[Rfam]
The family of this 229-nucleotide part of an RNA from Azospirillum lipoferum is "Bacterial large subunit ribosomal RNA". Lineage of the source: Bacteria > Alphaproteobacteria > Rhodospirillales > Azospirillaceae > Azospirillum lipoferum.
RNA sequence: GACUUAGAGUAUGCAGCGAGCUUAAGCCGGUAGGUGGAGGCGCAGCGAAAGCGAGUCUGAAUAGGGCGACCGAGUUGCAUGCUUUAGACCCGAAACCUGAUGAUCUAGCCAUGGGCAGGUUGAAGGUGCGGUAACACGCACUGGAGGACCGAACUCACGCCUGUUGAAAAAGUCGGAGAUGACCUGUGGCUAGGGGUGAAAGGCCAAUCAAAUCAGGAAAUAGCUGGUU
Dot-bracket structure: ....(((((((((((((..((((..(((....)))..))))...((....))..((((.....))))......)))))))))))))..((.(...((((((...((((((((((((.((((...((((((......))))))....))))...(((.((.((........)).)))))..).))))))))))).(((.....)))......))))))......).))..